nqrA-II ncRNA motif: a 173-nucleotide RNA sequence from Muribacter muris. It is annotated as a cis-regulatory element.
[Rfam]
RNA sequence: UUAUUUUAUCUUGCCGAAAAGAUAAGAAACCGAAUUUGAGAACUUAAUGUGGUGUGCAAAGGUAAGUGGGGGAACUCAACGUUUAUCUUUGAUGUCGCCACGGCUCAAUAGAAGCGAUUGCAAUGUAUGCAAUCAUAUUUUUAACCCAACAAAAAGUAGUGCAAACAAUAUGA
Numbered sequence: 001u002u003a004u005u006u007u008a009u010c011u012u013g014c015c016g017a018a019a020a021g022a023u024a025a026g027a028a029a030c031c032g033a034a035u036u037u038g039a040g041a042a043c044u045u046a047a048u049g050u051g052g053u054g055u056g057c058a059a060a061g062g063u064a065a066g067u068g069g070g071g072g073a074a075c076u077c078a079a080c081g082u083u084u085a086u087c088u089u090u091g092a093u094g095u096c097g098c099c100a101c102g103g104c105u106c107a108a109u110a111g112a113a114g115c116g117a118u119u120g121c122a123a124u125g126u127a128u129g130c131a132a133u134c135a136u137a138u139u140u141u142u143a144a145c146c147c148a149a150c151a152a153a154a155a156g157u158a159g160u161g162c163a164a165a166c167a168a169u170a171u172g173a
Base pairs, nucleotide, nucleotide: 002029004027005026006025007024008023009022010021011020012019036108037107038106039105040104048102049101050100051099052098053097055092057091058090059089060088061087062086063085064084065083066082067081068080069076070075114162115161116134117133118132119131120130121129122128137157138156139155140154141153142152
Dot-bracket structure: .(.(((((((((......))))))))).)......(((((.......((((((.(.((((((((((((((....))...)))))))))))))....)))))).))))).....(((((((((.....)))))))..((((((.........))))))...))...........
Rfam's curators put it in the seed alignment.
The base pairs follow the family's consensus structure, which is taken from published work.